Annotation: Rfam assigns this 491-nucleotide part of an RNA from Brassica oleracea to the family "Eukaryotic large subunit ribosomal RNA". Rfam links the family to the GO terms structural constituent of ribosome and ribosome. Lineage of the source: Eukaryota > Viridiplantae > Streptophyta > rosids > Brassica oleracea.

[Rfam]
RNA sequence: UAGAAUAAUGUAGAUAAGGGAAGUCGGCAAAAUAGAUCCGUAACUUCGGGAUAAGGAUUGGCUCUAAGGGUUGGGCACGUCGGGCCUCUGGCGGACGCCCCGGGAGCAGGUGGCCACUAGCCGGGCAACCGGCCGGGGGCCUCCAGCACCCGCGGGUCGACGCCUCUGGCAGGCUUCGGCCGUCCGGCGUGCGGUUAACAACCAACUUAGAACUGGUACGGACAAGGGGAAUCUGACUGUCUAAUUAAAACAUAGCAUUGCGAUGGCCGGAAAGCGGUGUUGACGCAAUGUGAUUUCUGCCCAGUGCUCUGAAUGUCAAAGUGAAGUAAUUCAACCAAGCGCGGGUAAACGGCGGGAGUAACUAUGACUCUCUUAAGGUAGCCAAAUGCCUCGUCAUCUAAUUAGUGACGCGCAUGAAUGGAUUAACGAGAUUCCCCCUGUCCCUAUCUCCUAUCUAGCGAAACCACAGCGAAGGGAACGGGCUUCGCAAA
Number, nucleotide and partner (000 for none) at each position: 001u457002a456003g455004a454005a000006u000007a000008a000009u000010g451011u000012a449013g448014a447015u446016a445017a000018g443019g442020g441021a000022a000023g000024u000025c000026g000027g000028c000029a000030a000031a000032a000033u000034a000035g059036a058037u057038c056039c055040g000041u000042a000043a000044c049045u000046u000047c000048g000049g044050g000051a000052u000053a000054a000055g039056g038057a037058u036059u035060g214061g213062c000063u211064c210065u209066a208067a207068g206069g203070g202071u201072u200073g199074g000075g192076c191077a190078c189079g188080u187081c186082g185083g184084g170085c169086c168087u000088c000089u000090g164091g163092c000093g000094g000095a000096c000097g157098c156099c155100c154101c152102g151103g150104g149105a000106g147107c146108a000109g144110g143111u000112g141113g140114c139115c138116a000117c136118u135119a000120g133121c132122c131123g130124g129125g000126c000127a000128a000129c124130c123131g122132g121133c120134c000135g118136g117137g000138g115139g114140c113141c112142u000143c110144c109145a000146g107147c106148a000149c104150c103151c102152g101153c000154g100155g099156g098157u097158c000159g000160a000161c000162g000163c091164c090165u000166c000167u000168g086169g085170c084171a000172g000173g000174c000175u000176u000177c000178g000179g000180c000181c000182g000183u000184c083185c082186g081187g080188c079189g078190u077191g076192c075193g000194g000195u000196u000197a000198a000199c073200a072201a071202c070203c069204a000205a000206c068207u067208u066209a065210g064211a063212a000213c061214u060215g219216g000217u000218a000219c215220g000221g000222a000223c000224a000225a000226g000227g436228g435229g434230a433231a432232u431233c430234u428235g427236a000237c000238u252239g251240u250241c000242u000243a000244a000245u000246u000247a000248a000249a000250a240251c239252a238253u000254a000255g291256c290257a289258u288259u287260g286261c285262g284263a000264u000265g000266g278267c277268c276269g275270g000271a000272a000273a000274g000275c269276g268277g267278u266279g000280u000281u000282g000283a000284c262285g261286c260287a259288a258289u257290g256291u255292g000293a000294u000295u422296u421297c420298u000299g353300c352301c351302c000303a000304g350305u349306g346307c345308u344309c343310u000311g342312a000313a000314u341315g340316u339317c000318a000319a000320a000321g000322u333323g332324a331325a330326g000327u000328a000329a000330u325331u324332c323333a322334a000335c000336c000337a000338a000339g316340c315341g314342c311343g309344g308345g307346u306347a000348a000349a305350c304351g301352g300353c299354g372355g371356g370357a369358g368359u367360a000361a000362c000363u000364a000365u000366g000367a359368c358369u357370c356371u355372c354373u377374u000375a000376a000377g373378g000379u000380a000381g000382c000383c000384a000385a000386a000387u000388g000389c000390c000391u000392c000393g409394u408395c407396a406397u405398c000399u000400a000401a000402u000403u000404a000405g397406u396407g395408a394409c393410g000411c000412g000413c000414a000415u000416g000417a000418a000419u000420g297421g296422a295423u000424u000425a000426a000427c235428g234429a000430g233431a232432u231433u230434c229435c228436c227437c000438c000439u000440g000441u020442c019443c018444c000445u016446a015447u014448c013449u012450c000451c010452u000453a000454u004455c003456u002457a001458g000459c000460g000461a000462a000463a000464c000465c000466a000467c000468a000469g000470c487471g486472a485473a484474g483475g000476g000477a000478a000479c000480g000481g000482g000483c474484u473485u472486c471487g470488c000489a000490a000491a000